[Rfam]
RNA sequence: CACCGGCGUUUGAUCGCGCCGAGGGUUUGGUGACCGGCUUGUCCCCCGCCGCAUCAAACUUGGACAAAGGCCUUAUCCCCCUCUCCGGGCCUUUGUCCCCAUUUUUGAGCCGCCAUGGUCCACCUCCUGACCAUGGCGGCUUUGU
Numbered sequence: 001c002a003c004c005g006g007c008g009u010u011u012g013a014u015c016g017c018g019c020c021g022a023g024g025g026u027u028u029g030g031u032g033a034c035c036g037g038c039u040u041g042u043c044c045c046c047c048g049c050c051g052c053a054u055c056a057a058a059c060u061u062g063g064a065c066a067a068a069g070g071c072c073u074u075a076u077c078c079c080c081c082u083c084u085c086c087g088g089g090c091c092u093u094u095g096u097c098c099c100c101a102u103u104u105u106u107g108a109g110c111c112g113c114c115a116u117g118g119u120c121c122a123c124c125u126c127c128u129g130a131c132c133a134u135g136g137c138g139g140c141u142u143u144g145u
Stems, first nucleotide, its partner, number of pairs: 026058007036050003062098011107141001110139011

The record is a 145-nucleotide sequence from Rhizobium sp. BG4, which matches "Alphaproteobacterial sRNA ar7" in Rfam. The match comes from Rfam's covariance-model search (121 bits). The family's RNA type in Rfam is small RNA. The pairing is the family consensus, mapped onto this sequence. On this family, see del Val et al., RNA Biol 2012: "A survey of sRNA families in alpha-proteobacteria". Taxonomically the source falls in Rhizobium (Bacteria, Pseudomonadati, Pseudomonadota, Alphaproteobacteria).